[Rfam]
RNA sequence: ACCACCUUUUAAAAGAAGUCCAGAGAGGCUUAAAAGGGUGUUCGCAGUAAAGACAGUAGUAGAUACUUUUUUCUACCACGUCUUUCUAGCCCACACCCUGUCCUUAACUGGCGGGGUGUUUUUUGU
Numbered sequence: 001a002c003c004a005c006c007u008u009u010u011a012a013a014a015g016a017a018g019u020c021c022a023g024a025g026a027g028g029c030u031u032a033a034a035a036g037g038g039u040g041u042u043c044g045c046a047g048u049a050a051a052g053a054c055a056g057u058a059g060u061a062g063a064u065a066c067u068u069u070u071u072u073c074u075a076c077c078a079c080g081u082c083u084u085u086c087u088a089g090c091c092c093a094c095a096c097c098c099u100g101u102c103c104u105u106a107a108c109u110g111g112c113g114g115g116g117u118g119u120u121u122u123u124u125g126u
Stems, first nucleotide, its partner, number of pairs: 005037005016031005052083001056079002059076005065070001093119010
RNA: PyrR binding site